RNA: Small nucleolar RNA SNORA23
Organism: Gasterosteus aculeatus
RNA sequence: GGUGGACGGCGUGCACGGCGACCGUCUGUGUUAUGUGCUGUUGCCUGACUGUGUCUUGCAGGCUGGGCAGCAGUGCUCACCCCACACCUGCGGCCAUAGAAUAAAUGGAGAUCAUAGUACUGGUCCUUGACGUCUUUAUCGACAUCUCACCAUUGGCCAGCCUCCAAAUUCUCCUACACGC
Numbered sequence: 001g002g003u004g005g006a007c008g009g010c011g012u013g014c015a016c017g018g019c020g021a022c023c024g025u026c027u028g029u030g031u032u033a034u035g036u037g038c039u040g041u042u043g044c045c046u047g048a049c050u051g052u053g054u055c056u057u058g059c060a061g062g063c064u065g066g067g068c069a070g071c072a073g074u075g076c077u078c079a080c081c082c083c084a085c086a087c088c089u090g091c092g093g094c095c096a097u098a099g100a101a102u103a104a105a106u107g108g109a110g111a112u113c114a115u116a117g118u119a120c121u122g123g124u125c126c127u128u129g130a131c132g133u134c135u136u137u138a139u140c141g142a143c144a145u146c147u148c149a150c151c152a153u154u155g156g157c158c159a160g161c162c163u164c165c166a167a168a169u170u171c172u173c174c175u176a177c178a179c180g181c
Stems, first nucleotide, its partner, number of pairs: 013091003029084002034079002036075006043068002045065001047063001050060003107174005120160006127152001129146002132143003